[Rfam]
RNA: Archaeal large subunit ribosomal RNA, nucleotides 561 to 657
Organism: Methanimicrococcus blatticola
RNA sequence: GAUGGAGCGUGCAAGGAUCUUUCUUAUGAAGGAAAAAACCGCGAGGUUUGUGUACGAAUAAGAUUGCCGAUGUUCCAUCUUAAGUUUUGAAGAACUG
Numbered sequence: 001g002a003u004g005g006a007g008c009g010u011g012c013a014a015g016g017a018u019c020u021u022u023c024u025u026a027u028g029a030a031g032g033a034a035a036a037a038a039c040c041g042c043g044a045g046g047u048u049u050g051u052g053u054a055c056g057a058a059u060a061a062g063a064u065u066g067c068c069g070a071u072g073u074u075c076c077a078u079c080u081u082a083a084g085u086u087u088u089g090a091a092g093a094a095c096u097g
Stems, first nucleotide, its partner, number of pairs: 001079010015068002022063006031055001036049005083096003